[Rfam]
Nucleotides: 081
Stems, first nucleotide, its partner, number of pairs: 001080007010024003026042005057073005
Number, partner (000 for none) and nucleotide at each position: 001080g002079c003078c004077a005076g006075g007074a008000u009000g010024g011023c012022c013000g014000a015000g016000c017000g018000g019000u020000a021000a022012g023011g024010c025000g026042c027041a028040c029039g030038c031000c032000u033000g034000g035000a036000a037000a038030g039029c040028g041027u042026g043000u044000u045000c046000c047000c048000u049000c050000u051000g052000g053000g054000a055000u056000c057073g058072g059071g060070g061069g062000u063000u064000c065000a066000a067000a068000u069061c070060c071059c072058u073057c074007u075006c076005c077004u078003g079002g080001c081000g
The family of this 81-nucleotide sequence from Haloferax volcanii is "tRNA". By type it is a transfer RNA. The match comes from Rfam's covariance-model search (61 bits). The organism belongs to Haloferax volcanii, within Archaea. Transfer RNA (tRNA) molecules are approximately 80 nucleotides in length.